[Rfam]
RNA sequence: GAAUAGCAACACGGGUGCUUGAUGAAGUCAGGCUGAGAUAGUGGCCCCAUGCCACUGACCGUUAAUCUGAUCUGGGUAAUGCCAGCGUAGAGAAUGAAGUGCCUUGUCUA
Numbered sequence: 001g002a003a004u005a006g007c008a009a010c011a012c013g014g015g016u017g018c019u020u021g022a023u024g025a026a027g028u029c030a031g032g033c034u035g036a037g038a039u040a041g042u043g044g045c046c047c048c049a050u051g052c053c054a055c056u057g058a059c060c061g062u063u064a065a066u067c068u069g070a071u072c073u074g075g076g077u078a079a080u081g082c083c084a085g086c087g088u089a090g091a092g093a094a095u096g097a098a099g100u101g102c103c104u105u106g107u108c109u110a
Base pairs, nucleotide, nucleotide: 009095011062012061013060014059017033018032019031020030021029040056041055042054043053044052066091067090068089069088072085073084074083075082
Dot-bracket structure: ........(.((((..(((((.......)))))......(((((.......)))))..))))...((((..((((......))))..))))...)...............
The record is a 110-nucleotide RNA from Paenibacillus sp. yr247, which matches "TPP riboswitch aptamer (THI element)" in Rfam. From the family's description: Vitamin B(1) in its active form thiamin pyrophosphate (TPP) is an essential coenzyme that is synthesised by coupling of pyrimidine and thiazole moieties in bacteria. The match comes from Rfam's covariance-model search (54 bits).